[Rfam]
A member of the RNA family "SAM riboswitch aptamer (S box leader)" from Fulvivirga sediminis, 108 nucleotides long.
RNA sequence: CUCUUAUCAAGAAAGGCUGAGGGAAAUGGCCCGUCGAAGCCUUAGCAACCAUCCUGAAAUAUAGGUAAAGGUGCUAAAUCCAUCUCCAGAAAAGGAGGAAGAUAAGUU
Number, nucleotide and partner (000 for none) at each position: 001c000002u000003c106004u105005u104006a103007u102008c101009a000010a000011g000012a000013a043014a042015g041016g040017c039018u000019g000020a000021g032022g031023g030024a000025a000026a083027u082028g081029g080030c023031c022032c021033g000034u000035c000036g000037a000038a000039g017040c016041c015042u014043u013044a075045g074046c073047a072048a000049c071050c070051a000052u000053c065054c064055u000056g000057a000058a000059a000060u000061a000062u000063a000064g054065g053066u000067a000068a000069a000070g050071g049072u047073g046074c045075u044076a000077a000078a000079u100080c029081c028082a027083u026084c097085u096086c095087c094088a000089g000090a000091a000092a000093a000094g087095g086096a085097g084098g000099a000100a079101g008102a007103u006104a005105a004106g003107u000108u000

About this RNA:
Rfam's curators write: The SAM riboswitch is found upstream of a number of genes which code for proteins involved in methionine or cysteine biosynthesis in Gram-positive bacteria. The match comes from Rfam's covariance-model search (81 bits).